The record is a 164-nucleotide RNA sequence from Phoenix dactylifera, which matches "small nucleolar RNA snoR143" in Rfam.
The literature on the family includes a 2009 paper in Nucleic Acids Res by Chen and Wu, "Mining small RNA sequencing data: a new approach to identify small nucleolar RNAs in Arabidopsis".
RNA sequence: AUGCACCUGAAAAUUUAUGAGGUCUCACUCAUCUUUCUAGUGAGAUUUCAAGAUAUGGUGCGUACAGGAAAAGCUGUUUUACAGCAGCGGCCAGACAACCGUAGAGAUAGAUCCACAGGUGAGUGGUUUGGAUACCAUUUGUCUACUGAUUCUAUCUCACAUCA
Numbered sequence: 001a002u003g004c005a006c007c008u009g010a011a012a013a014u015u016u017a018u019g020a021g022g023u024c025u026c027a028c029u030c031a032u033c034u035u036u037c038u039a040g041u042g043a044g045a046u047u048u049c050a051a052g053a054u055a056u057g058g059u060g061c062g063u064a065c066a067g068g069a070a071a072a073g074c075u076g077u078u079u080u081a082c083a084g085c086a087g088c089g090g091c092c093a094g095a096c097a098a099c100c101g102u103a104g105a106g107a108u109a110g111a112u113c114c115a116c117a118g119g120u121g122a123g124u125g126g127u128u129u130g131g132a133u134a135c136c137a138u139u140u141g142u143c144u145a146c147u148g149a150u151u152c153u154a155u156c157u158c159a160c161a162u163c164a
Stems, first nucleotide, its partner, number of pairs: 002062005015053002018050010029039001104158008122140002124137003

The family's RNA type in Rfam is H/ACA-box small nucleolar RNA. The base pairs follow the family's consensus structure, which was predicted with RNAalifold. Rfam 15.1 lists 660 matches to the family in 212 species.